[Rfam]
RNA sequence: GGGCCUAUAGCUCAGUUGGUCAGAGCGCACGCCUGAUAAGCGUGAGGUCGGUAGUUCAAAUCUACCUAGGCCCA
Dot-bracket structure: (((((((..((((.........)))).(((((.......))))).....(((((.......)))))))))))).
RNA: tRNA